[Rfam]
RNA sequence: AGAGUAGAACGAUCGAUCGCAAUUUUUUGAGGAAAGUCCAGACUCCAUAGGGCAGGAUGCCAGGUUAAAUCCUGGAGAGAGAAAUCUCUGGUAUAGGGCCAUAGAAAUCAAACCGCCUUAUAUUAGGCAAGGGUGGAAAGGUGAGGUAAGAGCUCACCAGUGUCAGGGUAACCUGAUAGCUUGGUAACCCCCAUCUGGAGCAAGACCAAAUUUGAAGGUGAGUUGCCCGCUCGUUAACUUCAAGGUGGGUCGCUUAGAUAGAUGAUCGAUUAAUACAGAAUCUGGCUUAUAGUUCUACUUGAAAA
Numbered sequence: 001a002g003a004g005u006a007g008a009a010c011g012a013u014c015g016a017u018c019g020c021a022a023u024u025u026u027u028u029g030a031g032g033a034a035a036g037u038c039c040a041g042a043c044u045c046c047a048u049a050g051g052g053c054a055g056g057a058u059g060c061c062a063g064g065u066u067a068a069a070u071c072c073u074g075g076a077g078a079g080a081g082a083a084a085u086c087u088c089u090g091g092u093a094u095a096g097g098g099c100c101a102u103a104g105a106a107a108u109c110a111a112a113c114c115g116c117c118u119u120a121u122a123u124u125a126g127g128c129a130a131g132g133g134u135g136g137a138a139a140g141g142u143g144a145g146g147u148a149a150g151a152g153c154u155c156a157c158c159a160g161u162g163u164c165a166g167g168g169u170a171a172c173c174u175g176a177u178a179g180c181u182u183g184g185u186a187a188c189c190c191c192c193a194u195c196u197g198g199a200g201c202a203a204g205a206c207c208a209a210a211u212u213u214g215a216a217g218g219u220g221a222g223u224u225g226c227c228c229g230c231u232c233g234u235u236a237a238c239u240u241c242a243a244g245g246u247g248g249g250u251c252g253c254u255u256a257g258a259u260a261g262a263u264g265a266u267c268g269a270u271u272a273a274u275a276c277a278g279a280a281u282c283u284g285g286c287u288u289a290u291a292g293u294u295c296u297a298c299u300u301g302a303a304a305a
Stems, first nucleotide, its partner, number of pairs: 002300009011290001012270007020029003034288003038285005043200004050228004055196005060075005077088004091191001096189002098185003113132002115128004140158006160180001161178007204251004213242005219233005
Dot-bracket structure: .(((((((((((((((((.(((....)))....[[[.[[[[[((((...[[[[.((((((((((......))))).((((....))))..(....(((((............((((((......))))..)).......((((((.......)))))).((((((((....))))))).)..)))..)).))))))))))...((((.....(((((.(((((.]]]])))))....))))).....))))............)))))))..........]]]]]]]].).))))))))).....

A member of the RNA family "Bacterial RNase P class A" from Geotoga petraea, 305 nucleotides long. The family's RNA type in Rfam is ribozyme. Rfam links the family to the GO terms dimeric ribonuclease P complex, tRNA processing and ribonuclease P activity. The base pairs follow the family's consensus structure, which is taken from published work.